[Rfam]
RNA sequence: CUUCUGCGGCAGUCGCUGGCCGUAAGGUCAGAGGAAAGUCCAUGCUCGCACAUUCUGUGAUGAAUGUAGUGUUUGUGCUGGAUGAAACGAUAAAUCCAGGCAGCGUAAGCUGACGGCUGGAGAAGGCCUGUGGUGAAAGCUAUGGCGGACUCCUUUAAAAGUGCCACAGAAACGAGCUUUUCGGGAAACCGGAAAGAUGGAACGGGUAAACCCCGCAAGCGAGAAACCCAAAUUUGGUAGGGGAAUCUAAUCACGGCAAAACGAAGCCAGUGAUCGGAACGUGGAAACACGUAGAUAAAUGACUGCCACUUUCGCAAGAGAGUACAGAACAUGGCUUAUGCAG
Numbered sequence: 001c002u003u004c005u006g007c008g009g010c011a012g013u014c015g016c017u018g019g020c021c022g023u024a025a026g027g028u029c030a031g032a033g034g035a036a037a038g039u040c041c042a043u044g045c046u047c048g049c050a051c052a053u054u055c056u057g058u059g060a061u062g063a064a065u066g067u068a069g070u071g072u073u074u075g076u077g078c079u080g081g082a083u084g085a086a087a088c089g090a091u092a093a094a095u096c097c098a099g100g101c102a103g104c105g106u107a108a109g110c111u112g113a114c115g116g117c118u119g120g121a122g123a124a125g126g127c128c129u130g131u132g133g134u135g136a137a138a139g140c141u142a143u144g145g146c147g148g149a150c151u152c153c154u155u156u157a158a159a160a161g162u163g164c165c166a167c168a169g170a171a172a173c174g175a176g177c178u179u180u181u182c183g184g185g186a187a188a189c190c191g192g193a194a195a196g197a198u199g200g201a202a203c204g205g206g207u208a209a210a211c212c213c214c215g216c217a218a219g220c221g222a223g224a225a226a227c228c229c230a231a232a233u234u235u236g237g238u239a240g241g242g243g244a245a246u247c248u249a250a251u252c253a254c255g256g257c258a259a260a261a262c263g264a265a266g267c268c269a270g271u272g273a274u275c276g277g278a279a280c281g282u283g284g285a286a287a288c289a290c291g292u293a294g295a296u297a298a299a300u301g302a303c304u305g306c307c308a309c310u311u312u313c314g315c316a317a318g319a320g321a322g323u324a325c326a327g328a329a330c331a332u333g334g335c336u337u338a339u340g341c342a343g
Stems, first nucleotide, its partner, number of pairs: 004343003008307007016031006036337003040334005045223005050067006073218005078099006100114001101112004115213002119153003126146003132141003161211002163207003177196008227242003246278003250274003279292005309322005

The record is a 343-nucleotide RNA sequence from [Clostridium] innocuum, which matches "Bacterial RNase P class B" in Rfam. By type it is a ribozyme. Its Rfam clan is "RNaseP clan".